[Rfam]
RNA sequence: AUAGACCUACCAGGAUAAAAGUCGGAAUCCUGUAGCUUGGGUAGCAGCAUAAAGGGAAACCAAAAUGUUGAAGCCUACCGACAACAUUAUCGUAGGAUAAUGGCGAAUUACCAGGCCGUAGCGAAAGCGAAUGCACAGAUUGCCUCGAAAGGAAUAUUCUGAAGGUCGAGCCAUCUUGGUACUGGCGAAGACAGAAUAGACCAGACGAAAAACGAAUGAAACGAUUGGUCUACUUCAGCGGGGUGUUAGUAAC
Numbered sequence: 001a002u003a004g005a006c007c008u009a010c011c012a013g014g015a016u017a018a019a020a021g022u023c024g025g026a027a028u029c030c031u032g033u034a035g036c037u038u039g040g041g042u043a044g045c046a047g048c049a050u051a052a053a054g055g056g057a058a059a060c061c062a063a064a065a066u067g068u069u070g071a072a073g074c075c076u077a078c079c080g081a082c083a084a085c086a087u088u089a090u091c092g093u094a095g096g097a098u099a100a101u102g103g104c105g106a107a108u109u110a111c112c113a114g115g116c117c118g119u120a121g122c123g124a125a126a127g128c129g130a131a132u133g134c135a136c137a138g139a140u141u142g143c144c145u146c147g148a149a150a151g152g153a154a155u156a157u158u159c160u161g162a163a164g165g166u167c168g169a170g171c172c173a174u175c176u177u178g179g180u181a182c183u184g185g186c187g188a189a190g191a192c193a194g195a196a197u198a199g200a201c202c203a204g205a206c207g208a209a210a211a212a213c214g215a216a217u218g219a220a221a222c223g224a225u226u227g228g229u230c231u232a233c234u235u236c237a238g239c240g241g242g243g244u245g246u247u248a249g250u251a252a253c
Base pairs, nucleotide, nucleotide: 011032012031013030014029015028023218035091039082041078042077044074045070046069047068048067049066050065054061055060142244143243144242145241146240147239159238160237161236162235163234164233165192166191167190170186171185172184173183197232198231199230200229201228202227203226204225206223207222